Description: Rfam assigns this 122-nucleotide RNA sequence from Ideonella aquatica to the family "Burkholderia RNA 11". About the family: Co-purified with Hfq, expression confirmed by Northern blot. Predicted target marZ. Overlaps coding sequence. The organism belongs to Ideonella, within Bacteria. The base pairs follow the family's consensus structure, which was predicted with RNAfold. It scores 89 bits against the family's covariance model.
RNA sequence: GCAACCUGCAGCUGGCGCACCAGAACCUGGUGGUCUUCCGCUCGCUGCUGGGCAUCUCUUGGAUGUGGUUCUUCGGCGCGGUCUUCCUGGGCCAGUUCCCCAGCUUUGCCAAGGACGUACUG
Numbered sequence: 001g002c003a004a005c006c007u008g009c010a011g012c013u014g015g016c017g018c019a020c021c022a023g024a025a026c027c028u029g030g031u032g033g034u035c036u037u038c039c040g041c042u043c044g045c046u047g048c049u050g051g052g053c054a055u056c057u058c059u060u061g062g063a064u065g066u067g068g069u070u071c072u073u074c075g076g077c078g079c080g081g082u083c084u085u086c087c088u089g090g091g092c093c094a095g096u097u098c099c100c101c102a103g104c105u106u107u108g109c110c111a112a113g114g115a116c117g118u119a120c121u122g
Stems, first nucleotide, its partner, number of pairs: 010049003014045001015043001017041002022036003026032001051121002054118002057115004062110001063105001067099002071095002077089002080087002